[Rfam]
The family of this 87-nucleotide sequence from Rotaria magnacalcarata is "Small nucleolar RNA SNORD24".
By type it is a C/D-box small nucleolar RNA.
The base pairs follow the family's consensus structure, which was predicted with PFOLD.
Rfam 15.1 lists 2,843 matches to the family in 1,188 species.
It scores 48 bits against the family's covariance model.
Nucleotides: 087
Stems, first nucleotide, its partner, number of pairs: 001087004
Number, partner (000 for none) and nucleotide at each position: 001087c002086g003085u004084c005000g006000g007000u008000g009000a010000u011000g012000a013000a014000g015000a016000a017000a018000c019000a020000u021000a022000g023000u024000u025000g026000c027000u028000a029000c030000u031000c032000u033000c034000g035000a036000c037000c038000u039000c040000u041000a042000a043000u044000g045000a046000a047000g048000a049000g050000g051000g052000a053000u054000g055000a056000c057000g058000a059000c060000a061000u062000g063000a064000c065000u066000a067000u068000c069000c070000a071000c072000u073000a074000a075000g076000a077000u078000c079000u080000c081000u082000g083000a084004g085003a086002c087001g